[Rfam]
RNA sequence: CUGUCUCUUGCGUCAACAGUGUUUAGACAGGACAG
Numbered sequence: 001c002u003g004u005c006u007c008u009u010g011c012g013u014c015a016a017c018a019g020u021g022u023u024u025a026g027a028c029a030g031g032a033c034a035g
Base pairs, nucleotide, nucleotide: 001035002034003033004032006031007030008029010028013026015024016023017021
A member of the RNA family "Iron response element I" from Myotis brandtii, 35 nucleotides long.
The base pairs follow the family's consensus structure, which is taken from published work.
Rfam classes the family as a cis-regulatory element.
A search with the family's covariance model found it, with a score of 36 bits.
Taxonomically the source falls in Myotis (Eukaryota, Gnathostomata, Teleostomi, Theria).